[Rfam]
RNA sequence: ACGUUACAAAAGCAUAUACGUAAUAUAUGGUGUCAUAUAAAACGGCUGAAGAGGACUUUAAUUGGUCCUAGAACGGCCUGAGGUAGAGGGGUUUUAGUCGGUAGGUCCGAGGACUUUUUCCUCGGGAAUCCGACACCACCUAGUCGUACGGACGGCUGGGUGUCUUUUGAAGAUUUCCCCUCUUCCACUAAA
Numbered sequence: 001a002c003g004u005u006a007c008a009a010a011a012g013c014a015u016a017u018a019c020g021u022a023a024u025a026u027a028u029g030g031u032g033u034c035a036u037a038u039a040a041a042a043c044g045g046c047u048g049a050a051g052a053g054g055a056c057u058u059u060a061a062u063u064g065g066u067c068c069u070a071g072a073a074c075g076g077c078c079u080g081a082g083g084u085a086g087a088g089g090g091g092u093u094u095u096a097g098u099c100g101g102u103a104g105g106u107c108c109g110a111g112g113a114c115u116u117u118u119u120c121c122u123c124g125g126g127a128a129u130c131c132g133a134c135a136c137c138a139c140c141u142a143g144u145c146g147u148a149c150g151g152a153c154g155g156c157u158g159g160g161u162g163u164c165u166u167u168u169g170a171a172g173a174u175u176u177c178c179c180c181u182c183u184u185c186c187a188c189u190a191a192a
Base pairs, nucleotide, nucleotide: 062191063190064189065188066187082186083185085183086182088179089178090177097134098133099132100131101130106126107125108124109123110122111121112120113119137162138161139160140159141158142157

The record is a 192-nucleotide RNA from Agrilus planipennis, which matches "R2 RNA element" in Rfam. By type it is a cis-regulatory element. About the family: This family represents the 3' UTR region of the R2 retrotransposable element. Pairs were carried over by alignment from the consensus structure, which is taken from published work. On this family, see Ruschak et al., RNA 2004: "Secondary structure models of the 3' untranslated regions of diverse R2 RNAs".